[Rfam]
RNA sequence: GGACAAUGACGAUGAUAUAGUGAAAGGUCUCGUUCGUCGUAACUGGCGUAACCCGCCUUGCCGACCAUCCUAUAUAUCACCACCCAUAAACCGAGUCC
Numbered sequence: 001g002g003a004c005a006a007u008g009a010c011g012a013u014g015a016u017a018u019a020g021u022g023a024a025a026g027g028u029c030u031c032g033u034u035c036g037u038c039g040u041a042a043c044u045g046g047c048g049u050a051a052c053c054c055g056c057c058u059u060g061c062c063g064a065c066c067a068u069c070c071u072a073u074a075u076a077u078c079a080c081c082a083c084c085c086a087u088a089a090a091c092c093g094a095g096u097c098c
Stems, first nucleotide, its partner, number of pairs: 001098004050059002
The record is a 98-nucleotide RNA sequence from Macleaya cordata, which matches "Small nucleolar RNA Z43" in Rfam. Rfam links the family to the GO terms nucleolus and RNA processing. On this family, see Chen et al., Nucleic Acids Res 2003: "The high diversity of snoRNAs in plants: identification and comparative study of 120 snoRNA genes from Oryza sativa".